[Rfam]
RNA sequence: CUUGAGCGAGCCCAGCCACAGGGGCCGGUCCUCCGGCCGUCCUUGUCCGUAGGUGGCCAGGAGGGCUUGUGCCUC
Numbered sequence: 001c002u003u004g005a006g007c008g009a010g011c012c013c014a015g016c017c018a019c020a021g022g023g024g025c026c027g028g029u030c031c032u033c034c035g036g037c038c039g040u041c042c043u044u045g046u047c048c049g050u051a052g053g054u055g056g057c058c059a060g061g062a063g064g065g066c067u068u069g070u071g072c073c074u075c
Stems, first nucleotide, its partner, number of pairs: 015025003031071001033069001038065001043060003047056003
RNA: ASpks TB sRNA
Organism: Streptomyces cinnamoneus